[Rfam]
The family of this 89-nucleotide RNA from Dokdonia pacifica is "Flavo-1 RNA". The organism belongs to Dokdonia, within Bacteria. It is annotated as a small RNA.
RNA sequence: UGUUUGUCAUUGCGUUAGGGAUAGCAACGGCAUCCUUUUUUGGGUAAGAUGUAUGCCCAAAAAAGAUAUAGUGAAUAGCCCGCCCCGCA
Numbered sequence: 001u002g003u004u005u006g007u008c009a010u011u012g013c014g015u016u017a018g019g020g021a022u023a024g025c026a027a028c029g030g031c032a033u034c035c036u037u038u039u040u041u042g043g044g045u046a047a048g049a050u051g052u053a054u055g056c057c058c059a060a061a062a063a064a065g066a067u068a069u070a071g072u073g074a075a076u077a078g079c080c081c082g083c084c085c086c087g088c089a
Base pairs, nucleotide, nucleotide: 018081019080020079022077023076027072028071032067033066034065038062039061040060041059042058043057044056045055
Dot-bracket structure: .................(((.((...((...(((...((((((((.........))))))))..)))...))...)).)))........